[Rfam]
RNA sequence: GAGGGUGGGCCCCUCGAAAUCGGCAUUCAGGUGAAGAUUUCAAACCGCCUUUGGGUGCUGCAACCAAAAGUUGUGGUGCUGAGCGCAAAAGGAAAAGGCUAAUAUAUUAGUCAGGU
Number, nucleotide and partner (000 for none) at each position: 001g015002a014003g013004g012005g011006u000007g000008g000009g000010c000011c005012c004013c003014u002015c001016g041017a040018a039019a038020u037021c036022g000023g000024c033025a032026u031027u000028c000029a000030g000031g026032u025033g024034a000035a000036g021037a020038u019039u018040u017041c016042a000043a000044a000045c000046c115047g000048c092049c091050u090051u089052u088053g086054g080055g079056u000057g077058c076059u075060g000061c073062a072063a071064c070065c000066a000067a000068a000069a000070g064071u063072u062073g061074u000075g059076g058077u057078g000079c055080u054081g000082a000083g000084c000085g000086c053087a000088a052089a051090a050091g049092g048093a000094a000095a000096a000097g112098g111099c110100u109101a108102a107103u000104a000105u000106a000107u102108u101109a100110g099111u098112c097113a000114g000115g046116u000
RNA: Group II catalytic intron D1-D4-2
Organism: Desulforamulus profundi